[Rfam]
RNA: MAT2A 3'UTR stem loop A
RNA sequence: GCUUUUUUUCCCCAGGCCUGUUGGUGUGUACUACAGAAAAGCCUGCAUGGCCUUAGGGGGAAAAGGC
Numbered sequence: 001g002c003u004u005u006u007u008u009u010c011c012c013c014a015g016g017c018c019u020g021u022u023g024g025u026g027u028g029u030a031c032u033a034c035a036g037a038a039a040a041g042c043c044u045g046c047a048u049g050g051c052c053u054u055a056g057g058g059g060g061a062a063a064a065g066g067c
Base pairs, nucleotide, nucleotide: 001067002066003065004064008059009058010057011056014053015052016051019047020046023043024042025041026034027033
Dot-bracket structure: ((((...((((..(((..((..(((((.....))......)))..))...)))..))))....))))